[Rfam]
RNA sequence: CUCUCCGCUGCAAACAACCUGCCCUAAGCUGGGUGGACCUCUUGCUUAGGGCAGGUUGUUUGCAGCGGAGAG
Numbered sequence: 001c002u003c004u005c006c007g008c009u010g011c012a013a014a015c016a017a018c019c020u021g022c023c024c025u026a027a028g029c030u031g032g033g034u035g036g037a038c039c040u041c042u043u044g045c046u047u048a049g050g051g052c053a054g055g056u057u058g059u060u061u062g063c064a065g066c067g068g069a070g071a072g
Stems, first nucleotide, its partner, number of pairs: 002071005008065022
Dot-bracket structure: .(((((.((((((((((((((((((((((..............)))))))))))))))))))))).))))).
RNA: mir-30 microRNA precursor family
Organism: Baryphthengus martii